[Rfam]
Shown here is a 123-nucleotide RNA from Aureimonas sp. AU20, a member of the family "Rhizobiales sRNA Atu_C8".
The match comes from Rfam's covariance-model search (72 bits).

RNA sequence: CAUGUCGAAGAAGCUCAUUCUCCUCGUAAGCAGGCGCACACGCGAGACGGUCUAGGGACCGUCCGGCUCUUGCCACGUGUGCGCAACCCAAGGCCCCUCGGAGGGCCUUUUUUAUUGCCUGAA
Number, nucleotide and partner (000 for none) at each position: 001c000002a000003u000004g000005u000006c000007g000008a000009a000010g000011a000012a000013g000014c000015u000016c000017a000018u000019u000020c000021u000022c000023c000024u000025c000026g000027u000028a000029a000030g118031c117032a116033g000034g084035c083036g082037c081038a080039c079040a078041c077042g076043c000044g000045a000046g063047a062048c061049g060050g059051u000052c000053u000054a000055g000056g000057g000058a000059c050060c049061g048062u047063c046064c000065g000066g073067c072068u000069c000070u000071u000072g067073c066074c000075a000076c042077g041078u040079g039080u038081g037082c036083g035084c034085a000086a000087c000088c000089c000090a109091a108092g107093g106094c105095c104096c103097c000098u000099c000100g000101g000102a000103g096104g095105g094106c093107c092108u091109u090110u000111u000112u000113u000114a000115u000116u032117g031118c030119c000120u000121g000122a000123a000

Overview: On this family, see Wilms et al., RNA Biol 2012: "Deep sequencing uncovers numerous small RNAs on all four replicons of the plant pathogen Agrobacterium tumefaciens". Pairs were carried over by alignment from the consensus structure, which was predicted with CMfinder.